[Rfam]
RNA sequence: CACAGGAGAACUCAGGCUAAAAUCGCCACGUCCUGUGGCAACGCCUUAGUGACCAACAUCUUGUUGA
Numbered sequence: 001c002a003c004a005g006g007a008g009a010a011c012u013c014a015g016g017c018u019a020a021a022a023u024c025g026c027c028a029c030g031u032c033c034u035g036u037g038g039c040a041a042c043g044c045c046u047u048a049g050u051g052a053c054c055a056a057c058a059u060c061u062u063g064u065u066g067a
Stems, first nucleotide, its partner, number of pairs: 011049002014046004025039005054066004
The family of this 67-nucleotide sequence from Solibacillus sp. R5-41 is "Bacillaceae-1 RNA". Lineage of the source: Bacteria > Bacillota > Bacilli > Caryophanaceae > Solibacillus. A search with the family's covariance model found it, with a score of 67 bits.